RNA sequence: GCGCGUGUUCGCGACUGGCGCGCCGAGGGUGGGAUCAACCACUGGGGAGCGGGAGCCGGAGAGCACCGCGCGCCUGGGUGCCCCGG
Numbered sequence: 001g002c003g004c005g006u007g008u009u010c011g012c013g014a015c016u017g018g019c020g021c022g023c024c025g026a027g028g029g030u031g032g033g034a035u036c037a038a039c040c041a042c043u044g045g046g047g048a049g050c051g052g053g054a055g056c057c058g059g060a061g062a063g064c065a066c067c068g069c070g071c072g073c074c075u076g077g078g079u080g081c082c083c084c085g086g
Base pairs, nucleotide, nucleotide: 005056006055008053009052010051011050012049015046016045017074018073019072020071021070029042030041031040032039063081064080065079066078067077

The record is an 86-nucleotide sequence from Allokutzneria albata, which matches "ZMP/ZTP riboswitch aptamer (pfl RNA motif)" in Rfam. Lineage of the source: Bacteria > Bacillati > Actinomycetota > Pseudonocardiales > Allokutzneria. The match comes from Rfam's covariance-model search (46 bits).